[Rfam]
RNA sequence: GGCGAUAAACGGUCAUCGUAAUAAACCUAUCGGACCCGGGGGCGGUACCCGGCGCCUCCACCCAAGGCCAUCGAAGCACCAGCAAGAUGGCUUUCGGCGGGGGCGAAAUAGGAUCGACGAGGGCUUAAAGGGUGUUCUUUCGCUCGGCAUGGUACCGCCGAUAUCGGACCAAACCUAUAGUUGCGAAUGACAACUAUGCUCCGGUUGCUAUCGCCGCGUAA
Dot-bracket structure: (((((........((((........(((.(((...(((((.......)))))(((((((.......................................)))))))............)))))).......)))).....)))))((((........)))).............................................................
Numbered sequence: 001g002g003c004g005a006u007a008a009a010c011g012g013u014c015a016u017c018g019u020a021a022u023a024a025a026c027c028u029a030u031c032g033g034a035c036c037c038g039g040g041g042g043c044g045g046u047a048c049c050c051g052g053c054g055c056c057u058c059c060a061c062c063c064a065a066g067g068c069c070a071u072c073g074a075a076g077c078a079c080c081a082g083c084a085a086g087a088u089g090g091c092u093u094u095c096g097g098c099g100g101g102g103g104c105g106a107a108a109u110a111g112g113a114u115c116g117a118c119g120a121g122g123g124c125u126u127a128a129a130g131g132g133u134g135u136u137c138u139u140u141c142g143c144u145c146g147g148c149a150u151g152g153u154a155c156c157g158c159c160g161a162u163a164u165c166g167g168a169c170c171a172a173a174c175c176u177a178u179a180g181u182u183g184c185g186a187a188u189g190a191c192a193a194c195u196a197u198g199c200u201c202c203g204g205u206u207g208c209u210a211u212c213g214c215c216g217c218g219u220a221a
Stems, first nucleotide, its partner, number of pairs: 001144005014134004026123003030120003036052005053105007145160004
Notes:
The family of this 221-nucleotide RNA sequence from Kaistia soli is "permuted transfer-messenger RNA". For this family Rfam cites "Phylogenetic analysis of tmRNA secondary structure" (Williams and Bartel, RNA, 1996). The base pairs follow the family's consensus structure, which is taken from published work. It scores 157 bits against the family's covariance model. Rfam classes the family as a non-coding RNA gene. The organism belongs to Kaistia soli, within Bacteria.